[Rfam]
RNA: mraW RNA
Organism: Arthrobacter sp. PAMC25564
RNA sequence: AUACGAUUCUUGAUCGAGAUCUCCAGCCGCCCGUCCGUUUGUUUUCCUGGCUCACUUCCCCGGAGCCAGGCGGACGCAGGUCAGGGGCGGAUGGGGAUCCCGACCAAGAAGCACACAGUC
Numbered sequence: 001a002u003a004c005g006a007u008u009c010u011u012g013a014u015c016g017a018g019a020u021c022u023c024c025a026g027c028c029g030c031c032c033g034u035c036c037g038u039u040u041g042u043u044u045u046c047c048u049g050g051c052u053c054a055c056u057u058c059c060c061c062g063g064a065g066c067c068a069g070g071c072g073g074a075c076g077c078a079g080g081u082c083a084g085g086g087g088c089g090g091a092u093g094g095g096g097a098u099c100c101c102g103a104c105c106a107a108g109a110a111g112c113a114c115a116c117a118g119u120c
Base pairs, nucleotide, nucleotide: 010107011106012105014103015102016101018099019098021096022095023094024093025092027090028089029088030087031086032085034083036076037075038074039073046070047069048068049067050066051065052064053063